[Rfam]
Source information
A member of the RNA family "Caenorhabditis snoRNA ceN81" from Acrobeloides nanus, 125 nucleotides long. For this family Rfam cites "Systematic identification of non-coding RNA 2,2,7-trimethylguanosine cap structures in Caenorhabditis elegans" (Jia et al., BMC Mol Biol, 2007). It is annotated as an H/ACA-box small nucleolar RNA. Lineage of the source: Eukaryota > Opisthokonta > Chromadorea > Cephaloboidea > Acrobeloides.
Nucleotides: 125
Stems, first nucleotide, its partner, number of pairs: 003055008012047002016042005023035001025033002064119003071116002077110003082100001084098005
Number, partner (000 for none) and nucleotide at each position: 001000u002000a003055u004054g005053a006052a007051g008050a009049g010048u011000a012047g013046u014000c015000a016042c017041c018040a019039g020038u021000u022000c023035a024000a025033g026032g027000c028000a029000a030000a031000u032026c033025c034000u035023u036000u037000u038020a039019u040018u041017g042016g043000g044000u045000u046013a047012c048010a049009c050008u051007c052006u053005u054004c055003a056000a057000a058000g059000a060000a061000a062000a063000u064119g065118g066117c067000u068000u069000a070000u071116u072115c073000u074000c075000g076000u077110u078109a079108a080000a081000u082100u083000u084098u085097a086096u087095u088094c089000c090000u091000u092000a093000u094088g095087a096086a097085u098084a099000u100082g101000g102000u103000u104000u105000u106000c107000c108079u109078u110077a111000u112000a113000a114000u115072g116071a117066g118065c119064u120000a121000c122000a123000a124000a125000a